This 56-nucleotide sequence from Myotis brandtii belongs to the Rfam family "mir-9193 microRNA precursor family". NCBI's taxonomy places the organism under Eukaryota, Euteleostomi, Theria, Chiroptera, Myotis.
RNA sequence: GGGGAGUCCCUCAGCCUGGAUUGCAAGAGGGUGCAGGCCAGGCCGAGGGACCCCAC
Numbered sequence: 001g002g003g004g005a006g007u008c009c010c011u012c013a014g015c016c017u018g019g020a021u022u023g024c025a026a027g028a029g030g031g032u033g034c035a036g037g038c039c040a041g042g043c044c045g046a047g048g049g050a051c052c053c054c055a056c
Base pairs, nucleotide, nucleotide: 001056003054004053006051007050008049009048010047011046012045014043015042016041018039019038021036022035023034024033025032